RNA sequence: CGAAGCCACUAGGGGUGCCCGGCAGUCGCUUCCAUCGCGAUGGCCGACCGGGCUGAGAUCACACCCUCCGAACCUGAUCCGGGUCAUGCCGGCGCAGGGAAGUGCUGGACGAACUCA
Numbered sequence: 001c002g003a004a005g006c007c008a009c010u011a012g013g014g015g016u017g018c019c020c021g022g023c024a025g026u027c028g029c030u031u032c033c034a035u036c037g038c039g040a041u042g043g044c045c046g047a048c049c050g051g052g053c054u055g056a057g058a059u060c061a062c063a064c065c066c067u068c069c070g071a072a073c074c075u076g077a078u079c080c081g082g083g084u085c086a087u088g089c090c091g092g093c094g095c096a097g098g099g100a101a102g103u104g105c106u107g108g109a110c111g112a113a114c115u116c117a
Base pairs, nucleotide, nucleotide: 007104008103009102010101011067012066013065014064016061017053018052019051020050021049073098074097075096076095079092080091081090082089
This 117-nucleotide RNA from Synechococcus sp. CBW1004 belongs to the Rfam family "TPP riboswitch aptamer (THI element)". The family's consensus secondary structure is taken from published work.